[Rfam]
RNA sequence: AUCCAUUGACCACCACGGCAGGAGCGGGGGACCCAGGUAAGUCGCCGGACCGGACACAGCGCCGGAACGGCUUGGGGUGAAGCCGAUUCCUCGACACCGAGGACACGGCCGGGCACCUCCCAGCCCGAACCCGACAGCUCACCUCGCAGGCGCCGGAGAGGACUA
Numbered sequence: 001a002u003c004c005a006u007u008g009a010c011c012a013c014c015a016c017g018g019c020a021g022g023a024g025c026g027g028g029g030g031a032c033c034c035a036g037g038u039a040a041g042u043c044g045c046c047g048g049a050c051c052g053g054a055c056a057c058a059g060c061g062c063c064g065g066a067a068c069g070g071c072u073u074g075g076g077g078u079g080a081a082g083c084c085g086a087u088u089c090c091u092c093g094a095c096a097c098c099g100a101g102g103a104c105a106c107g108g109c110c111g112g113g114c115a116c117c118u119c120c121c122a123g124c125c126c127g128a129a130c131c132c133g134a135c136a137g138c139u140c141a142c143c144u145c146g147c148a149g150g151c152g153c154c155g156g157a158g159a160g161g162a163c164u165a
Stems, first nucleotide, its partner, number of pairs: 002023003024147006034074005075132003083108003111126004

Notes:
This 165-nucleotide sequence from Streptomyces sp. Ru72 belongs to the Rfam family "c-di-AMP riboswitch aptamer (ydaO/yuaA leader)". Gene Ontology terms of the family: regulation of gene expression and cyclic-di-AMP binding. It scores 54 bits against the family's covariance model. Taxonomically the source falls in Streptomyces (Bacteria, Bacillati, Actinomycetota, Kitasatosporales). Rfam's curators write: This family represents a conserved RNA structure found upstream of the ydaO and yuaA genes in Bacillus subtilis and related genes in other bacteria.